[Rfam]
Overview
Small nucleolar RNA U2-19: an 80-nucleotide RNA sequence from Molossus molossus.

RNA sequence: AAUCGAUGAUGCAAAUUGCCAAAUCUGAGCAUCAGAAGACCUUCCAGUCUACCUGAUGCAUGAUCUCUGUAGGUCUGAGA
Numbered sequence: 001a002a003u004c005g006a007u008g009a010u011g012c013a014a015a016u017u018g019c020c021a022a023a024u025c026u027g028a029g030c031a032u033c034a035g036a037a038g039a040c041c042u043u044c045c046a047g048u049c050u051a052c053c054u055g056a057u058g059c060a061u062g063a064u065c066u067c068u069g070u071a072g073g074u075c076u077g078a079g080a
Stems, first nucleotide, its partner, number of pairs: 029059005037050004
Rfam links the family to the GO terms RNA processing and nucleolus. The base pairs follow the family's consensus structure, which is taken from published work. A reference for the family is Tycowski et al. (2004), "Guide RNAs with 5' Caps and Novel Box C/D snoRNA-like Domains for Modification of snRNAs in Metazoa", Curr Biol. NCBI's taxonomy places the organism under Eukaryota, Bilateria, Mammalia, Theria, Molossus.